[Rfam]
RNA sequence: CUGGAGGCUUUAUUAGCCAUUGAACUGUUUUGUCACUCUCUGUCAAAGAACAAAUUGUUCCCUGUCAGAGAGUGACAGAACAGUUCAAUAGCUAAAGCGUCCAAUAGA
Numbered sequence: 001c002u003g004g005a006g007g008c009u010u011u012a013u014u015a016g017c018c019a020u021u022g023a024a025c026u027g028u029u030u031u032g033u034c035a036c037u038c039u040c041u042g043u044c045a046a047a048g049a050a051c052a053a054a055u056u057g058u059u060c061c062c063u064g065u066c067a068g069a070g071a072g073u074g075a076c077a078g079a080a081c082a083g084u085u086c087a088a089u090a091g092c093u094a095a096a097g098c099g100u101c102c103a104a105u106a107g108a
Stems, first nucleotide, its partner, number of pairs: 002103002008097003014094004019089010029069004034064002049059004